Rfam assigns this 82-nucleotide sequence from Tepidimonas charontis to the family "int-alpA RNA".
It scores 61 bits against the family's covariance model.
RNA sequence: GCCACGCCUAGCCCCCGGCUGAUCCCCGAGGGCGAAAACCGGGAUACCCUGACCCGGCUGGCGUUGGCAUCUGAUGCAAGGG
Numbered sequence: 001g002c003c004a005c006g007c008c009u010a011g012c013c014c015c016c017g018g019c020u021g022a023u024c025c026c027c028g029a030g031g032g033c034g035a036a037a038a039c040c041g042g043g044a045u046a047c048c049c050u051g052a053c054c055c056g057g058c059u060g061g062c063g064u065u066g067g068c069a070u071c072u073g074a075u076g077c078a079a080g081g082g
Base pairs, nucleotide, nucleotide: 001068002067003066004065005063006062007061008060011033012032013031014030039057040056041055042054043053047082048081049080050079

Pairs were carried over by alignment from the consensus structure, which is taken from published work. Lineage of the source: Bacteria > Pseudomonadota > Betaproteobacteria > Burkholderiales > Tepidimonas. Acidobacteria (1 example), Planctomycetes (1 example), Proteobacteria.